[Rfam]
RNA sequence: UCGGCUCCGGUUCACGCUUCCGCAUCCCGCGGCCGCGACCCGGCGCC
Numbered sequence: 001u002c003g004g005c006u007c008c009g010g011u012u013c014a015c016g017c018u019u020c021c022g023c024a025u026c027c028c029g030c031g032g033c034c035g036c037g038a039c040c041c042g043g044c045g046c047c
Base pairs, nucleotide, nucleotide: 003047004046005045007043008042009041010040015037016036017035020032021031022030023029
Source information: This 47-nucleotide RNA from Streptomyces sclerotialus belongs to the Rfam family "L31-Actinobacteria ribosomal protein leader". For this family Rfam cites "Discovery of 20 novel ribosomal leader candidates in bacteria and archaea" (Eckert and Weinberg, BMC Microbiol, 2020). Rfam classes the family as a cis-regulatory leader. The sequence is in the family's curated seed alignment. The organism belongs to Streptomyces, within Bacteria.